A member of the RNA family "ZMP/ZTP riboswitch aptamer (pfl RNA motif)" from Litchfieldia salsa, 87 nucleotides long.

RNA sequence: GCAAAUCGUAGUAACUGACGAAAAUGUGGAUUCAACCACAAGGGAGCUACGUAAUAGCCAAAAUAGCCGUUCGUCUGGGCAAGAGGC
Numbered sequence: 001g002c003a004a005a006u007c008g009u010a011g012u013a014a015c016u017g018a019c020g021a022a023a024a025u026g027u028g029g030a031u032u033c034a035a036c037c038a039c040a041a042g043g044g045a046g047c048u049a050c051g052u053a054a055u056a057g058c059c060a061a062a063a064u065a066g067c068c069g070u071u072c073g074u075c076u077g078g079g080c081a082a083g084a085g086g087c
Base pairs, nucleotide, nucleotide: 003055007051008050009049010048011047012046015043016042017075018074019073020072021071026039027038028037029036064082066080067079068078
It scores 56 bits against the family's covariance model. Rfam links the family to the GO terms regulation of purine nucleotide biosynthetic process and one-carbon metabolic process. NCBI's taxonomy places the organism under Bacteria, Bacillota, Caryophanales, Bacillaceae, Litchfieldia.